[Rfam]
RNA sequence: GCUUCGCGGUAAACCAUGGAAGCUGGUCUUCAUAUGUUGAGAGAUUGGAAAUGUACUUUUUGGUGAAUA
Numbered sequence: 001g002c003u004u005c006g007c008g009g010u011a012a013a014c015c016a017u018g019g020a021a022g023c024u025g026g027u028c029u030u031c032a033u034a035u036g037u038u039g040a041g042a043g044a045u046u047g048g049a050a051a052u053g054u055a056c057u058u059u060u061u062g063g064u065g066a067a068u069a
Base pairs, nucleotide, nucleotide: 003067004066005065006064007063010062011061012060013059017055018054020052023048024047025046026045027044028043029041030040031039032038
About this RNA
The record is a 69-nucleotide sequence from Bombyx mori, which matches "mir-2833 microRNA precursor family" in Rfam. A search with the family's covariance model found it, with a score of 73 bits. Gene Ontology terms of the family: RISC complex and miRNA-mediated post-transcriptional gene silencing.